Shown here is a 198-nucleotide RNA sequence from Roseburia zhanii, a member of the family "Group II catalytic intron D1-D4-3".
RNA sequence: UCCAUCGUGAGAUGGAAUCUGAAGGAAGCUGGAAGUGAGGAACAUACUAACUCAUGGGCAAAUCUCUGGUCUGACGAACAGAAAUCUCAUAUAAGGUUAUGCGUGAGGAUAAGGCUGCCCACCAAGUCGAAGUCCAAUAACUACACGGAAUCAUGCAUGAUAAAUGAGGCAGUUGACAAUCUUGACAUGGAUGGCAUG
Numbered sequence: 001u002c003c004a005u006c007g008u009g010a011g012a013u014g015g016a017a018u019c020u021g022a023a024g025g026a027a028g029c030u031g032g033a034a035g036u037g038a039g040g041a042a043c044a045u046a047c048u049a050a051c052u053c054a055u056g057g058g059c060a061a062a063u064c065u066c067u068g069g070u071c072u073g074a075c076g077a078a079c080a081g082a083a084a085u086c087u088c089a090u091a092u093a094a095g096g097u098u099a100u101g102c103g104u105g106a107g108g109a110u111a112a113g114g115c116u117g118c119c120c121a122c123c124a125a126g127u128c129g130a131a132g133u134c135c136a137a138u139a140a141c142u143a144c145a146c147g148g149a150a151u152c153a154u155g156c157a158u159g160a161u162a163a164a165u166g167a168g169g170c171a172g173u174u175g176a177c178a179a180u181c182u183u184g185a186c187a188u189g190g191a192u193g194g195c196a197u198g
Base pairs, nucleotide, nucleotide: 001016002015003014004013005012006011051198055194059190063185064184068180069174071172072171073170085169086168087167088166089165090164096161097160098159100157101156102155103154104153105152106151107135108134109133110132113128114127115126116125

Group II introns are found in rRNA, tRNA and mRNA of organelles in fungi, plants and protists, and also in mRNA in bacteria. Taxonomically the source falls in Roseburia (Bacteria, Bacillati, Bacillota, Clostridia).